[Rfam]
RNA sequence: UUCUUAUCCAGAGUGGUGGAGGGACUGGCCCUAUGAAACCCGGCAACCAGUAUAUAUUUGAUAUACAUUGGUGCUAAAUCCAGCAACUUAUUAAAGUUGAAAGAUGAGUA
Numbered sequence: 001u002u003c004u005u006a007u008c009c010a011g012a013g014u015g016g017u018g019g020a021g022g023g024a025c026u027g028g029c030c031c032u033a034u035g036a037a038a039c040c041c042g043g044c045a046a047c048c049a050g051u052a053u054a055u056a057u058u059u060g061a062u063a064u065a066c067a068u069u070g071g072u073g074c075u076a077a078a079u080c081c082a083g084c085a086a087c088u089u090a091u092u093a094a095a096g097u098u099g100a101a102a103g104a105u106g107a108g109u110a
Stems, first nucleotide, its partner, number of pairs: 001110001003108006013041001015040003021031003025083004042075004047071002050066005079102001084099006
RNA: SAM riboswitch aptamer (S box leader)